[Rfam]
RNA sequence: ACGGUCUGAAAGUCACCUCCGGUCUCCUGUGGCCUAUGGUGAGAUAACUGUGCCAACAGUAUAGGGAACGUUAAGCUUAUUGCCCACGAUAACAGUCUGUGGGGAGUGAAACCCAUGUUCCCAUAACC
Numbered sequence: 001a002c003g004g005u006c007u008g009a010a011a012g013u014c015a016c017c018u019c020c021g022g023u024c025u026c027c028u029g030u031g032g033c034c035u036a037u038g039g040u041g042a043g044a045u046a047a048c049u050g051u052g053c054c055a056a057c058a059g060u061a062u063a064g065g066g067a068a069c070g071u072u073a074a075g076c077u078u079a080u081u082g083c084c085c086a087c088g089a090u091a092a093c094a095g096u097c098u099g100u101g102g103g104g105a106g107u108g109a110a111a112c113c114c115a116u117g118u119u120c121c122c123a124u125a126a127c128c
Base pairs, nucleotide, nucleotide: 006050008048010045013042014041015040016039021034022033023032024031065121067119068118069117070116071115077109078108079107080106081105085099086098
This 128-nucleotide RNA from Chauna torquata belongs to the Rfam family "Small nucleolar RNA ACA64". Gene Ontology terms of the family: RNA processing and nucleolus. The literature on the family includes a 2006 paper in RNA by Schattner et al., "A computational screen for mammalian pseudouridylation guide H/ACA RNAs". It is annotated as an H/ACA-box small nucleolar RNA. The match comes from Rfam's covariance-model search (80 bits).